[Rfam]
A member of the RNA family "Archaeal signal recognition particle RNA" from Pyrodictium occultum, 312 nucleotides long.
RNA sequence: CGCGCGGGUAGGGCCGGGGGCUCGCCCUCCCCCGAGCCCCGAAAUGGGCGUAAUGCGGGGGCCAGUAACCCGCACGUCGGCCGUAGUGGUCCAGGGCAGACCCGGCCGACCCAUGACCCCCGUCCCGCGGGGCCGGCGGCGGCGGAGCCCCCUCCGGAGGGAGGGAGGCUACCGCCCUUACCGGGGGAACCAGGCCAGGCCCGGAAGGGAGCAACCUAACCCCGGACGCCCGGCGUUCGCGGGGCCACGGGGUGAGGCAACGGCCGGGCCCCCUGCCCUGGGCCCCUACGGCUGGCGUGCGGGGGCCGCGCG
Numbered sequence: 001c002g003c004g005c006g007g008g009u010a011g012g013g014c015c016g017g018g019g020g021c022u023c024g025c026c027c028u029c030c031c032c033c034g035a036g037c038c039c040c041g042a043a044a045u046g047g048g049c050g051u052a053a054u055g056c057g058g059g060g061g062c063c064a065g066u067a068a069c070c071c072g073c074a075c076g077u078c079g080g081c082c083g084u085a086g087u088g089g090u091c092c093a094g095g096g097c098a099g100a101c102c103c104g105g106c107c108g109a110c111c112c113a114u115g116a117c118c119c120c121c122g123u124c125c126c127g128c129g130g131g132g133c134c135g136g137c138g139g140c141g142g143c144g145g146a147g148c149c150c151c152c153u154c155c156g157g158a159g160g161g162a163g164g165g166a167g168g169c170u171a172c173c174g175c176c177c178u179u180a181c182c183g184g185g186g187g188a189a190c191c192a193g194g195c196c197a198g199g200c201c202c203g204g205a206a207g208g209g210a211g212c213a214a215c216c217u218a219a220c221c222c223c224g225g226a227c228g229c230c231c232g233g234c235g236u237u238c239g240c241g242g243g244g245c246c247a248c249g250g251g252g253u254g255a256g257g258c259a260a261c262g263g264c265c266g267g268g269c270c271c272c273c274u275g276c277c278c279u280g281g282g283c284c285c286c287u288a289c290g291g292c293u294g295g296c297g298u299g300c301g302g303g304g305g306c307c308g309c310g311c312g
Stems, first nucleotide, its partner, number of pairs: 001312007009304001012063004016033004020028001038059004043054001069303013083289003088284011099270001101268008112257001114255001118252006124243008132234005137228002139178001141176005146170004150165006181225006192217003200209003
By type it is a non-coding RNA gene. NCBI's taxonomy places the organism under Archaea, Thermoproteati, Thermoproteota, Pyrodictiaceae, Pyrodictium. The family is grouped with related families in Rfam's "SRP clan". Pairs were carried over by alignment from the consensus structure, which is taken from published work.